[Rfam]
RNA: Small nucleolar RNA Z102/R77
Organism: Cicer arietinum
RNA sequence: GGAUGACAUGAUGAAUUAAUUAUUUCCCUAUUGGUUUGAUUGCCUGGAUGAUGGCAUCUGUGUAUUAGCUCUAUCUGAUCAUCC
Numbered sequence: 001g002g003a004u005g006a007c008a009u010g011a012u013g014a015a016u017u018a019a020u021u022a023u024u025u026c027c028c029u030a031u032u033g034g035u036u037u038g039a040u041u042g043c044c045u046g047g048a049u050g051a052u053g054g055c056a057u058c059u060g061u062g063u064a065u066u067a068g069c070u071c072u073a074u075c076u077g078a079u080c081a082u083c084c
Stems, first nucleotide, its partner, number of pairs: 002083004038058001041056004